About this RNA: Shown here is a 70-nucleotide RNA from Neurospora crassa, a member of the family "tRNA". Transfer RNA (tRNA) molecules are approximately 80 nucleotides in length. The organism belongs to Neurospora, within Eukaryota. It is annotated as a transfer RNA. It is one of the family's seed sequences.

[Rfam]
RNA sequence: UUCUCAUUAGCUCAAAGGAAGAGCAGGAUACUUCUAAUAUUCCGAUUUUAGUUCGAAUCUAAAAUGAGAA
Numbered sequence: 001u002u003c004u005c006a007u008u009a010g011c012u013c014a015a016a017g018g019a020a021g022a023g024c025a026g027g028a029u030a031c032u033u034c035u036a037a038u039a040u041u042c043c044g045a046u047u048u049u050a051g052u053u054c055g056a057a058u059c060u061a062a063a064a065u066g067a068g069a070a
Base pairs, nucleotide, nucleotide: 001070002069003068004067005066006065007064010024011023012022013021026042027041028040029039030038047063048062049061050060051059